The record is a 265-nucleotide part of an RNA from Candidatus Macondimonas diazotrophica, which matches "Bacterial large subunit ribosomal RNA" in Rfam. Pairs were carried over by alignment from the consensus structure, which is taken from published work.
[Rfam]
RNA sequence: GGAAACUUGAAGGGAGCUGCUCCUAGUACGAGAGGACCGGAGUGGACGUACCCCUGGUGUUCCGGUUGUCACGCCAGUGGCACUGCCGGGUAGCUAUGUACGGACGGGAUAACCGCUGAAAGCAUCUAAGCGGGAAGCCCACCCUAAGAUAAGGUUUCCCUGGGCCUUUAAGGUCCCUGAAGGGUCGUCGGAGACUACGACGUUGAUAGGCCGGGUGUGGAAGCGCAGUAAUGUGUGAAGCUAACCGGUACUAAUUACCCGUGAG
Number, nucleotide and partner (000 for none) at each position: 001g159002g158003a157004a156005a155006c154007u153008u152009g000010a000011a145012g144013g143014g142015a000016g000017c045018u044019g043020c042021u041022c040023c039024u000025a000026g000027u000028a000029c000030g000031a000032g000033a000034g000035g000036a000037c000038c000039g023040g022041a021042g020043u019044g018045g017046a000047c102048g101049u100050a099051c098052c000053c000054c000055u096056g095057g094058u000059g000060u000061u000062c089063c088064g087065g086066u085067u082068g081069u080070c079071a078072c077073g000074c000075c000076a000077g072078u071079g070080g069081c068082a067083c000084u000085g066086c065087c064088g063089g062090g000091u000092a000093g000094c057095u056096a055097u000098g051099u050100a049101c048102g047103g000104a000105c000106g140107g139108g138109a000110u000111a000112a000113c133114c132115g131116c130117u129118g000119a000120a000121a000122g000123c000124a000125u000126c000127u000128a000129a117130g116131c115132g114133g113134g000135a000136a000137g000138c108139c107140c106141a000142c014143c013144c012145u011146a000147a000148g000149a000150u000151a000152a008153g007154g006155u005156u004157u003158c002159c001160c000161u000162g177163g176164g175165c000166c000167u000168u000169u000170a000171a000172g000173g000174u000175c164176c163177c162178u000179g262180a000181a000182g260183g259184g258185u257186c202187g201188u200189c199190g198191g000192a000193g000194a000195c000196u000197a000198c190199g189200a188201c187202g186203u000204u000205g000206a000207u253208a252209g251210g249211c248212c247213g246214g245215g000216u000217g241218u000219g000220g000221a000222a000223g236224c235225g234226c233227a232228g000229u000230a000231a000232u227233g226234u225235g224236u223237g000238a000239a000240g000241c217242u000243a000244a000245c214246c213247g212248g211249u210250a000251c209252u208253a207254a000255u000256u000257a185258c184259c183260c182261g000262u179263g000264a000265g000
Rfam links the family to the GO terms structural constituent of ribosome and ribosome. Lineage of the source: Bacteria > Pseudomonadati > Pseudomonadota > Chromatiales > Candidatus Macondimonas.